[Rfam]
RNA: Small nucleolar RNA SNORA28
RNA sequence: AAGCAACACUCUGUGGCAGAUGAUUGAAACUGUCUGACACAAUUUGAGCUUGCUAUAGCAAGAAAGUCUGACCUAUUCCAGUGUUCUCUUCUCCAUGAGACGAGCUGUUAUAUAGACUUAAACAGU
Numbered sequence: 001a002a003g004c005a006a007c008a009c010u011c012u013g014u015g016g017c018a019g020a021u022g023a024u025u026g027a028a029a030c031u032g033u034c035u036g037a038c039a040c041a042a043u044u045u046g047a048g049c050u051u052g053c054u055a056u057a058g059c060a061a062g063a064a065a066g067u068c069u070g071a072c073c074u075a076u077u078c079c080a081g082u083g084u085u086c087u088c089u090u091c092u093c094c095a096u097g098a099g100a101c102g103a104g105c106u107g108u109u110a111u112a113u114a115g116a117c118u119u120a121a122a123c124a125g126u
Base pairs, nucleotide, nucleotide: 009048010047011046012041013040014039015038017036018035019034020033021032022031064119065118066117067116068115069114070113074112075111076110079107080106081105082104087100088099089098090097